[Rfam]
RNA sequence: UAGGAGAUUCUGUAAAGCUCAGGAGGGAUAGCGCCAUGACCAUGAUGAUAUGAUCUUAUAUCAAUCUAGUCAAUUGCGCUAUCCAUCCUGAGUUUUAUUGCAUCUUCUU
Numbered sequence: 001u002a003g004g005a006g007a008u009u010c011u012g013u014a015a016a017g018c019u020c021a022g023g024a025g026g027g028a029u030a031g032c033g034c035c036a037u038g039a040c041c042a043u044g045a046u047g048a049u050a051u052g053a054u055c056u057u058a059u060a061u062c063a064a065u066c067u068a069g070u071c072a073a074u075u076g077c078g079c080u081a082u083c084c085a086u087c088c089u090g091a092g093u094u095u096u097a098u099u100g101c102a103u104c105u106u107c108u109u
Stems, first nucleotide, its partner, number of pairs: 010100001016094009026084009

Shown here is a 109-nucleotide sequence from Aquilegia coerulea, a member of the family "MIR390 microRNA precursor family". Gene Ontology terms of the family: RISC complex and miRNA-mediated post-transcriptional gene silencing. Taxonomically the source falls in Aquilegia (Eukaryota, Euphyllophyta, Magnoliopsida, Ranunculales). Pairs were carried over by alignment from the consensus structure, which was predicted with WAR.